Shown here is an 85-nucleotide RNA sequence from Phoenix dactylifera, a member of the family "Small nucleolar RNA U54". The family's RNA type in Rfam is C/D-box small nucleolar RNA. Rfam links the family to the GO terms RNA processing and nucleolus. Its Rfam clan is "U54 clan".

[Rfam]
RNA sequence: UGUUUAAGGAUUACAGCCAAUUACUUUUGGCGAUAUAUGCUAUUCUGAGAAAGUUAAAGAGCCGACAUUGGAAUAUAUGAGAGUU
Numbered sequence: 001u002g003u004u005u006a007a008g009g010a011u012u013a014c015a016g017c018c019a020a021u022u023a024c025u026u027u028u029g030g031c032g033a034u035a036u037a038u039g040c041u042a043u044u045c046u047g048a049g050a051a052a053g054u055u056a057a058a059g060a061g062c063c064g065a066c067a068u069u070g071g072a073a074u075a076u077a078u079g080a081g082a083g084u085u
Stems, first nucleotide, its partner, number of pairs: 002084004
From the family's description: U54 is a C/D box small nucleolar RNA, which acts as a methylation guide for 18S ribosomal RNA in plants. It scores 42 bits against the family's covariance model. A reference for the family is Chen et al. (2003), "The high diversity of snoRNAs in plants: identification and comparative study of 120 snoRNA genes from Oryza sativa", Nucleic Acids Res.